[Rfam]
RNA sequence: CCCGUGAUAGCUCAGUUGGUAGAGCGGAAGACUGUAGUGGAAUAAGAAAAUCUGACAUCUUUAGGUCGGUGGUUCGACUCCGCCUCACGGGA
Numbered sequence: 001c002c003c004g005u006g007a008u009a010g011c012u013c014a015g016u017u018g019g020u021a022g023a024g025c026g027g028a029a030g031a032c033u034g035u036a037g038u039g040g041a042a043u044a045a046g047a048a049a050a051u052c053u054g055a056c057a058u059c060u061u062u063a064g065g066u067c068g069g070u071g072g073u074u075c076g077a078c079u080c081c082g083c084c085u086c087a088c089g090g091g092a
Stems, first nucleotide, its partner, number of pairs: 001091007010025004027062005068084005
This 92-nucleotide RNA sequence from Mytilus coruscus belongs to the Rfam family "tRNA". NCBI's taxonomy places the organism under Eukaryota, Metazoa, Spiralia, Pteriomorphia, Mytilus. Its family is annotated with triplet codon-amino acid adaptor activity in the Gene Ontology. It scores 58 bits against the family's covariance model. The family has 954 seed sequences and 5,335,975 matches in Rfam 15.1. Rfam classes the family as a transfer RNA.